[Rfam]
RNA sequence: UGGUGGCACCAACCGGGACUAAAGGGGGGCAUUGGUCCCGGUUGGUGCCACGAACCGGUACCAAUGCACCCCUUUAGUCCCGGUUGGUGCCACCAA
Numbered sequence: 001u002g003g004u005g006g007c008a009c010c011a012a013c014c015g016g017g018a019c020u021a022a023a024g025g026g027g028g029g030c031a032u033u034g035g036u037c038c039c040g041g042u043u044g045g046u047g048c049c050a051c052g053a054a055c056c057g058g059u060a061c062c063a064a065u066g067c068a069c070c071c072c073u074u075u076a077g078u079c080c081c082g083g084u085u086g087g088u089g090c091c092a093c094c095a096a
Stems, first nucleotide, its partner, number of pairs: 003093025029067002034062003038058002045051002
RNA: MIR5387 microRNA precursor family
Organism: Triticum urartu